[Rfam]
RNA sequence: GCAUCAAUGAUGAGAACUUAUGUUGUCUUGAAGAGAGAUGAUGACCUCAAAAUCAUGUUCAAUAAGAUGCUGAGACCC
Dot-bracket structure: (..(((.((..........................................................)).))..)..)
Numbered sequence: 001g002c003a004u005c006a007a008u009g010a011u012g013a014g015a016a017c018u019u020a021u022g023u024u025g026u027c028u029u030g031a032a033g034a035g036a037g038a039u040g041a042u043g044a045c046c047u048c049a050a051a052a053u054c055a056u057g058u059u060c061a062a063u064a065a066g067a068u069g070c071u072g073a074g075a076c077c078c
Stems, first nucleotide, its partner, number of pairs: 001078001004075001005072002008069002

This 78-nucleotide sequence from Hipposideros armiger belongs to the Rfam family "Small nucleolar RNA SNORD115". Rfam classes the family as a C/D-box small nucleolar RNA. Its family is annotated with RNA processing and nucleolus in the Gene Ontology. The organism belongs to Hipposideros, within Eukaryota. The family has 32 seed sequences and 3,387 matches in Rfam 15.1. It scores 68 bits against the family's covariance model.